The family of this 56-nucleotide RNA from Allocoleopsis franciscana is "Nitrogen stress-induced RNA 1". A reference for the family is Ionescu et al. (2010), "Heterocyst-specific transcription of NsiR1, a non-coding RNA encoded in a tandem array of direct repeats in cyanobacteria", J Mol Biol. The match comes from Rfam's covariance-model search (47 bits).
[Rfam]
RNA sequence: UGGUAGAUGCACCCUGUAAUGCCCCCCCGGAAAGUUUAUUUUUGGGGGGUUUUUAU
Numbered sequence: 001u002g003g004u005a006g007a008u009g010c011a012c013c014c015u016g017u018a019a020u021g022c023c024c025c026c027c028c029g030g031a032a033a034g035u036u037u038a039u040u041u042u043u044g045g046g047g048g049g050u051u052u053u054u055a056u
Stems, first nucleotide, its partner, number of pairs: 002013003024048010